Description: A member of the RNA family "tRNA" from Algoriphagus sanaruensis, 82 nucleotides long. Transfer RNA (tRNA) molecules are approximately 80 nucleotides in length. Their secondary structure includes four short double-helical elements and three loops (D, anti-codon, and T loops). Further hydrogen bonds mediate the characteristic L-shaped molecular structure. tRNAs have two regions of fundamental functional importance: the anti-codon, which is responsible for specific mRNA codon recognition, and the 3' end, to which the tRNAs corresponding amino acid is attached (by aminoacyl-tRNA synthetases). tRNAs cope with the degeneracy of the genetic code in two manners: having more than one tRNA (with a specific anti-codon) for a particular amino acid; and 'wobble' base-pairing, i.e. permitting non-standard base-pairing at the 3rd anti-codon position. It scores 58 bits against the family's covariance model. By type it is a transfer RNA. Gene Ontology term of the family: triplet codon-amino acid adaptor activity.
[Rfam]
RNA sequence: GCGGAUGUGGCGAAAUUGGUAGACGCACUAGACUUAGGAUCUAGCGCCGCGAGGCAUGGGGGUUCGAGUCCCUCUAUCCGCA
Numbered sequence: 001g002c003g004g005a006u007g008u009g010g011c012g013a014a015a016u017u018g019g020u021a022g023a024c025g026c027a028c029u030a031g032a033c034u035u036a037g038g039a040u041c042u043a044g045c046g047c048c049g050c051g052a053g054g055c056a057u058g059g060g061g062g063u064u065c066g067a068g069u070c071c072c073u074c075u076a077u078c079c080g081c082a
Stems, first nucleotide, its partner, number of pairs: 001081007010026003028044005058074005
Dot-bracket structure: (((((((..(((...........))).(((((.......))))).............(((((.......)))))))))))).